RNA: Small nucleolar RNA SNORD91 family
Organism: Castor canadensis
RNA sequence: CUUAGUAGCCAAUGAUGUUUUUAUUCAAAAUGUCUGAACCUGUCUGAAGCAUCCUAGUGAUGCAAUCUCUGUGGAACUGAGGCUUCUCUGUCA
Numbered sequence: 001c002u003u004a005g006u007a008g009c010c011a012a013u014g015a016u017g018u019u020u021u022u023a024u025u026c027a028a029a030a031u032g033u034c035u036g037a038a039c040c041u042g043u044c045u046g047a048a049g050c051a052u053c054c055u056a057g058u059g060a061u062g063c064a065a066u067c068u069c070u071g072u073g074g075a076a077c078u079g080a081g082g083c084u085u086c087u088c089u090g091u092c093a
Stems, first nucleotide, its partner, number of pairs: 004087002007084004